Rfam assigns this 79-nucleotide RNA from Acanthosepion pharaonis to the family "Mammalian CPEB3 ribozyme".
About the family: The mammalian CPEB3 ribozyme is a self cleaving RNA located in the second intron of the CPEB3 gene which belongs to a family of genes regulating messenger RNA polyadenylation.

RNA sequence: AGUGGAUAGCGAGGGUCUAAGGAAAGAGCGUUCACGUUGCGGACCUCAGAGAUGUGCUCUACCAUUUGCCAAUCCUUCC
Numbered sequence: 001a002g003u004g005g006a007u008a009g010c011g012a013g014g015g016u017c018u019a020a021g022g023a024a025a026g027a028g029c030g031u032u033c034a035c036g037u038u039g040c041g042g043a044c045c046u047c048a049g050a051g052a053u054g055u056g057c058u059c060u061a062c063c064a065u066u067u068g069c070c071a072a073u074c075c076u077u078c079c
Base pairs, nucleotide, nucleotide: 013046014045015044016043017042018041021079022078023077024076026074027073028040029039030038050067051066052065053064054063